[Rfam]
RNA sequence: GACGUUGUAUUUGUUUUAGAAUUCCUACGCUUUACCGUUUUAUUAAGUGGCAAAGCGUUUGAAAUCUGAACCAAAUGCACG
Numbered sequence: 001g002a003c004g005u006u007g008u009a010u011u012u013g014u015u016u017u018a019g020a021a022u023u024c025c026u027a028c029g030c031u032u033u034a035c036c037g038u039u040u041u042a043u044u045a046a047g048u049g050g051c052a053a054a055g056c057g058u059u060u061g062a063a064a065u066c067u068g069a070a071c072c073a074a075a076u077g078c079a080c081g
Stems, first nucleotide, its partner, number of pairs: 010075004015070006022063003027058007035050002
Notes:
Shown here is an 81-nucleotide RNA from Microctonus hyperodae, a member of the family "mir-927 microRNA precursor family". NCBI's taxonomy places the organism under Eukaryota, Arthropoda, Allotriocarida, Euphorinae, Microctonus. The match comes from Rfam's covariance-model search (72 bits). The family has 16 seed sequences and 174 matches in Rfam 15.1. Pairs were carried over by alignment from the consensus structure, which was predicted with RNAalifold. Gene Ontology terms of the family: RISC complex and miRNA-mediated post-transcriptional gene silencing.